[Rfam]
RNA sequence: UCCUCGCCUCCACUCCCUGGGCGAGUUCCGGCACUCCCCCAAUCGCCGGAAGCGUAGCCCGGCAACUCCCCCCUAAGUUGCCGGGCUUUUUUAA
Numbered sequence: 001u002c003c004u005c006g007c008c009u010c011c012a013c014u015c016c017c018u019g020g021g022c023g024a025g026u027u028c029c030g031g032c033a034c035u036c037c038c039c040c041a042a043u044c045g046c047c048g049g050a051a052g053c054g055u056a057g058c059c060c061g062g063c064a065a066c067u068c069c070c071c072c073c074u075a076a077g078u079u080g081c082c083g084g085g086c087u088u089u090u091u092u093a094a
Stems, first nucleotide, its partner, number of pairs: 003025006027050006057086011
Burkholderia RNA 7 (anti-hemB): a 94-nucleotide RNA sequence from Solimonas aquatica. The literature on the family includes a 2007 paper in Nucleic Acids Res by Weinberg et al., "Identification of 22 candidate structured RNAs in bacteria using the CMfinder comparative genomics pipeline". It scores 53 bits against the family's covariance model. Rfam's curators write: This RNA motif was identified by computational search in b-proteobacteria Burkholderia. Co-purified with Hfq, expression confirmed by Northern blot.